RNA: Glycine riboswitch aptamer
RNA sequence: AGACCCCACGCGGGAGAGGCCCUUCGCAGCCGGCGGGGGGCGCCGAAGGAGCAACCAUCCGGGAAUCUCUCAGGCGAAAAGACCGCGUGGGCGAG
Numbered sequence: 001a002g003a004c005c006c007c008a009c010g011c012g013g014g015a016g017a018g019g020c021c022c023u024u025c026g027c028a029g030c031c032g033g034c035g036g037g038g039g040g041c042g043c044c045g046a047a048g049g050a051g052c053a054a055c056c057a058u059c060c061g062g063g064a065a066u067c068u069c070u071c072a073g074g075c076g077a078a079a080a081g082a083c084c085g086c087g088u089g090g091g092c093g094a095g
Stems, first nucleotide, its partner, number of pairs: 006090008020040006042075003045071002049069003055062002